Shown here is a 109-nucleotide RNA from Pyrus ussuriensis x Pyrus communis, a member of the family "MIR398 microRNA precursor family".
RNA sequence: GGUCACCCCAAAGGUGUGAUACUGAGAACACAAAUGGUGUUGCCCGCUACAAACAUUGUAAGCACCGCUUACGCAUUUUGUGUUCUCAGGUCACCCCUUUGGGGCACCC
Number, nucleotide and partner (000 for none) at each position: 001g000002g000003u000004c000005a000006c000007c103008c102009c000010a000011a099012a098013g097014g096015u000016g094017u093018g092019a091020u000021a000022c000023u000024g087025a086026g085027a084028a083029c082030a081031c080032a079033a078034a000035u000036g000037g000038u000039g000040u000041u000042g000043c000044c000045c000046g000047c000048u000049a000050c000051a000052a000053a000054c000055a000056u000057u000058g000059u000060a000061a000062g000063c000064a000065c000066c000067g000068c000069u000070u000071a000072c000073g000074c000075a000076u000077u000078u033079u032080g031081u030082g029083u028084u027085c026086u025087c024088a000089g000090g000091u019092c018093a017094c016095c000096c014097c013098u012099u011100u000101g000102g008103g007104g000105c000106a000107c000108c000109c000

It scores 75 bits against the family's covariance model. The family has 14 seed sequences and 627 matches in Rfam 15.1. The source organism's lineage runs through Eukaryota, Tracheophyta, Pentapetalae, Rosaceae and Pyrus. Pairs were carried over by alignment from the consensus structure, which was predicted with WAR. Its family is annotated with RISC complex and miRNA-mediated post-transcriptional gene silencing in the Gene Ontology. On this family, see Jones-Rhoades and Bartel, Mol Cell 2004: "Computational identification of plant microRNAs and their targets, including a stress-induced miRNA".